[Rfam]
RNA sequence: AUAAAAGCCAGGAUAGGGAAGAGUACAGAGUGAAAAGCCUAAAGAGAGACGAACCAUUUGCUGCGAGGUUUGUCAGGCGGAUACUUUGGAAGGUCGCCCUUGAGCUUCUUUUGCGAACGGCAUUAUGCUCAUUAGUAAAAGACGGGAAAGCCGUUAUCAAUUUUAAGAGUCAAUAUCAGGCUGUUUUUUGAUAUUGAAAAAAAGGUGGUACCGCGAAGCAAACUCCAUUCGUCCUUUUA
Numbered sequence: 001a002u003a004a005a006a007g008c009c010a011g012g013a014u015a016g017g018g019a020a021g022a023g024u025a026c027a028g029a030g031u032g033a034a035a036a037g038c039c040u041a042a043a044g045a046g047a048g049a050c051g052a053a054c055c056a057u058u059u060g061c062u063g064c065g066a067g068g069u070u071u072g073u074c075a076g077g078c079g080g081a082u083a084c085u086u087u088g089g090a091a092g093g094u095c096g097c098c099c100u101u102g103a104g105c106u107u108c109u110u111u112u113g114c115g116a117a118c119g120g121c122a123u124u125a126u127g128c129u130c131a132u133u134a135g136u137a138a139a140a141g142a143c144g145g146g147a148a149a150g151c152c153g154u155u156a157u158c159a160a161u162u163u164u165a166a167g168a169g170u171c172a173a174u175a176u177c178a179g180g181c182u183g184u185u186u187u188u189u190g191a192u193a194u195u196g197a198a199a200a201a202a203a204g205g206u207g208g209u210a211c212c213g214c215g216a217a218g219c220a221a222a223c224u225c226c227a228u229u230c231g232u233c234c235u236u237u238u239a
Stems, first nucleotide, its partner, number of pairs: 007105002015100004026088006039077002050072006108141007143153003170197011202236004213232005

Notes:
The family of this 239-nucleotide RNA from Bacillus mesophilum is "T-box leader". Uncharged tRNA acts as the effector for transcription antitermination of genes in the T-box leader family. T-boxes are found upstream of many aminoacyl-tRNA synthetase genes and some amino acid biosynthetic genes usually in Gram-positive bacteria. The anticodon of a specific tRNA base pairs to a specifier sequence within the T-box motif, and the NCCA acceptor tail of the tRNA base pairs to a conserved bulge in the T-box antiterminator hairpin. A reference for the family is Grundy et al. (1994), "Interaction between the acceptor end of tRNA and the T box stimulates antitermination in the Bacillus subtilis tyrS gene: a new role for the discriminator base", J Bacteriol.